[Rfam]
RNA sequence: GGUAUUGUUUACCACCACUAUAGAGCCCCGGAAACUCAAUAGUAAUGUAAACAACUA
Numbered sequence: 001g002g003u004a005u006u007g008u009u010u011a012c013c014a015c016c017a018c019u020a021u022a023g024a025g026c027c028c029c030g031g032a033a034a035c036u037c038a039a040u041a042g043u044a045a046u047g048u049a050a051a052c053a054a055c056u057a
Stems, first nucleotide, its partner, number of pairs: 006053007017043005023037003
RNA: Ribosomal protein L13 leader